This 70-nucleotide sequence belongs to the Rfam family "potC RNA". It is one of the family's seed sequences. The family's consensus secondary structure is taken from published work. The family's RNA type in Rfam is cis-regulatory element.
RNA sequence: AGAUAUGUGCUCACGUCACUCUCCUCUAGGAUAUUUACCCUUUCCUAGAAAUUGUCGUGGGCACUAAAAA
Numbered sequence: 001a002g003a004u005a006u007g008u009g010c011u012c013a014c015g016u017c018a019c020u021c022u023c024c025u026c027u028a029g030g031a032u033a034u035u036u037a038c039c040c041u042u043u044c045c046u047a048g049a050a051a052u053u054g055u056c057g058u059g060g061g062c063a064c065u066a067a068a069a070a
Stems, first nucleotide, its partner, number of pairs: 007064009017054002027047005